[Rfam]
RNA sequence: CGCCCGCCGUGUUCACUGCUGGCCUUUGUGUUCUAUGAGUCAUAAGGCACGCGGUGAAUGCUAAGGGAA
Numbered sequence: 001c002g003c004c005c006g007c008c009g010u011g012u013u014c015a016c017u018g019c020u021g022g023c024c025u026u027u028g029u030g031u032u033c034u035a036u037g038a039g040u041c042a043u044a045a046g047g048c049a050c051g052c053g054g055u056g057a058a059u060g061c062u063a064a065g066g067g068a069a
Stems, first nucleotide, its partner, number of pairs: 003067003009061008018052002023047003027044004
Dot-bracket structure: ..(((...((((((((.((...(((.((((..........)))))))...)).))))))))...)))..
A member of the RNA family "mir-124 microRNA precursor family" from Amphibalanus amphitrite, 69 nucleotides long. Its family is annotated with RISC complex and miRNA-mediated post-transcriptional gene silencing in the Gene Ontology. A search with the family's covariance model found it, with a score of 57 bits.